Description
The family of this 177-nucleotide sequence from Clostridium luticellarii is "6S / SsrS RNA". The organism belongs to Clostridium, within Bacteria. About the family: E. coli 6S RNA was the first non coding RNA to be sequenced, but its function was unknown until recently.
[Rfam]
RNA sequence: GGAUUCCUGCUGUGUACGUUGAAUGAGUUGAUGUUGACCGAACAUUUUAUAAAAGGGAAUUUAACUCUUCUUGUGGAAUGAAACCUGAUUUGCUUCGGGCACAAGAAGCAAGAAGGAGAUGCCCACCUGCUGGGAGCGGGUUCAAAGUAACUCACGAGACGGCAUGGUGGGAAUUUG
Numbered sequence: 001g002g003a004u005u006c007c008u009g010c011u012g013u014g015u016a017c018g019u020u021g022a023a024u025g026a027g028u029u030g031a032u033g034u035u036g037a038c039c040g041a042a043c044a045u046u047u048u049a050u051a052a053a054a055g056g057g058a059a060u061u062u063a064a065c066u067c068u069u070c071u072u073g074u075g076g077a078a079u080g081a082a083a084c085c086u087g088a089u090u091u092g093c094u095u096c097g098g099g100c101a102c103a104a105g106a107a108g109c110a111a112g113a114a115g116g117a118g119a120u121g122c123c124c125a126c127c128u129g130c131u132g133g134g135a136g137c138g139g140g141u142u143c144a145a146a147g148u149a150a151c152u153c154a155c156g157a158g159a160c161g162g163c164a165u166g167g168u169g170g171g172a173a174u175u176u177g
Base pairs, nucleotide, nucleotide: 002175003174004173005172006171007170008169009168010167011166012165013164014163015162017161018160019159031148032147034145035144036143037142038140039139055124056123057122059120060119061118062117068114069113070112071111072110073109074108079103080102084099085098086097087096088095
The family's RNA type in Rfam is non-coding RNA gene.